[Rfam]
RNA sequence: GCGGAUGAUAGUUGUAGGAGAGAACAUUUAUAUGUCACCGAAGGAGCAAGUUCCAAGGAAAGAUCCGCUUGGAGCCAAUCUCUCAGGUAAACGGAUUACAGCUGGACGCAUCUCUGGAGAGCGCCUGCAUAGCAGGCCGCCAAAGGGGAAGGGCUUGAUUCCUGUAAUCGAGUUAAACUUUCAGGCAAAAGGACAGAGAA
Number, nucleotide and partner (000 for none) at each position: 001g109002c108003g107004g000005a000006u000007g000008a000009u000010a103011g102012u101013u100014g099015u098016a097017g096018g000019a000020g000021a000022g036023a000024a035025c034026a033027u032028u000029u000030a000031u000032a027033u026034g025035u024036c022037a088038c087039c086040g000041a000042a000043g084044g082045a081046g080047c000048a000049a000050g075051u074052u073053c072054c071055a070056a069057g068058g000059a000060a000061a000062g000063a000064u000065c000066c000067g000068c057069u056070u055071g054072g053073a052074g051075c050076c000077a000078a000079u000080c046081u045082c044083u000084c043085a000086g039087g038088u037089a000090a000091a000092c000093g000094g000095a000096u017097u016098a015099c014100a013101g012102c011103u010104g000105g000106a000107c003108g002109c001110a000111u000112c198113u197114c196115u195116g194117g000118a000119g000120a000121g138122c000123g137124c136125c135126u134127g000128c000129a000130u000131a000132g000133c000134a126135g125136g124137c123138c121139g186140c185141c184142a000143a000144a000145g182146g000147g179148g178149a000150a000151g000152g000153g000154c000155u000156u000157g000158a000159u000160u000161c000162c000163u000164g000165u000166a000167a000168u000169c000170g000171a000172g000173u000174u000175a000176a000177a000178c148179u147180u000181u000182c145183a000184g141185g140186c139187a000188a000189a000190a000191g000192g000193a000194c116195a115196g114197a113198g112199a000200a000
The family of this 200-nucleotide RNA from Bacillus thermotolerans is "glycine-GGAnGA riboswitch aptamer". glycine-GGAnGA riboswitch is a variant of glycine riboswitch that have in common a U69A change. Clan: Glycine riboswitch clan. Rfam links the family to the GO term glycine biosynthetic process. The match comes from Rfam's covariance-model search (114 bits).